[Rfam]
RNA sequence: CCAGAGGGCCGGGCGAUCGCUGGCCUGCGCUGACGCUGCGGUUGACUUGAACAUGGACUUGUCAAUCGAGCCUUUGCGCAGGGGAGAGGAAAGUCCGGGCACCAUGGGACUGCGGUGCCGGGUAACACCCGGCGGUCCGCGCGCAAGCGGGGAUCAGGGACAGUGCCACAGAAAGCAUUCCGCCCGCCUUCGGACGGGUCAGGUCGAAAGGGUGCGGUAAGAGCGCACCGCGGGACUGGAAACAGGACCGGCACGGUAAACCCCACCGGGUGCAAGACCGAAUAGGGGCGGCAUAUGGGCCUGGUCCUGGCCCGUCGCCCGGGUUGGUCGCUUGAGGGGCAGGGCAACCUGUCCCCUAGAGGAAUGAUCGCCCAUCCGUCCUUCGGGCCGGUGGACAGAACCCGGCUUACAGGCCCUCUGGCAAC
Dot-bracket structure: ((((((((((((((((((.((..(((((((.............................................)))))))..))....[[[.[[[[[((((....[[[[.((((((((((.....)))))(((((..............)))).)((...(((((............(((((((.(....).)))))..)).......((((((.......))))))((((..(((....)))..))).)..)))..)))))))))))))...((((......((((((.....(((((.]]]]..))))).)))))).....))))......((((((((....))))))))..........)))))))............................]]]]]]]].).))))))))))....

The family of this 425-nucleotide RNA sequence from Sphingomonas lutea is "Bacterial RNase P class A". NCBI's taxonomy places the organism under Bacteria, Pseudomonadota, Sphingomonadales, Sphingomonadaceae, Sphingomonas.